Rfam assigns this 94-nucleotide sequence from Staphylococcus simiae to the family "Staphylococcus sRNA 774". By type it is a small RNA. The literature on the family includes a 2016 paper in PLoS Genet by Mader et al., "Staphylococcus aureus Transcriptome Architecture: From Laboratory to Infection-Mimicking Conditions". Rfam describes the family as follows. Northern blot transcript confirmed in exponentially growing and stationary cells in three cultivation media. Trans-encoded. NCBI's taxonomy places the organism under Bacteria, Bacilli, Staphylococcaceae, Staphylococcus, Staphylococcus simiae.
RNA sequence: AAUAAAUACAAAUAAUUGUUGACUUUAAACAUUUUAUUAUGGUAUAUUAAAUUAGUAGUUAAAAAUAAUAUUAUCGCGGGAUGGAGCAGUUCGG
Numbered sequence: 001a002a003u004a005a006a007u008a009c010a011a012a013u014a015a016u017u018g019u020u021g022a023c024u025u026u027a028a029a030c031a032u033u034u035u036a037u038u039a040u041g042g043u044a045u046a047u048u049a050a051a052u053u054a055g056u057a058g059u060u061a062a063a064a065a066u067a068a069u070a071u072u073a074u075c076g077c078g079g080g081a082u083g084g085a086g087c088a089g090u091u092c093g094g
Stems, first nucleotide, its partner, number of pairs: 003039003009021003058069003